RNA: Small nucleolar RNA SNORD71
RNA sequence: UUUGUGCUGGAGGAUGAAAAUACAGAGUGAUCCAUCGGCUGAGUGUUUUAUCACAAUGCUGAAACUCAACUUGCUGACAGCGCACU
Numbered sequence: 001u002u003u004g005u006g007c008u009g010g011a012g013g014a015u016g017a018a019a020a021u022a023c024a025g026a027g028u029g030a031u032c033c034a035u036c037g038g039c040u041g042a043g044u045g046u047u048u049u050a051u052c053a054c055a056a057u058g059c060u061g062a063a064a065c066u067c068a069a070c071u072u073g074c075u076g077a078c079a080g081c082g083c084a085c086u
Stems, first nucleotide, its partner, number of pairs: 003084006009075002012033004017028001035062005043054003